[Rfam]
RNA sequence: GAUCGUGUAGCUCAUUGGUAGAACGCAGGGCUCAUUGCCCUGAGAAACUGGUUCGAUUCCAGUCGAGAUCA
Dot-bracket structure: ((((.((..(.((.......)).).(((((.......)))))....(((((.......))))))).)))).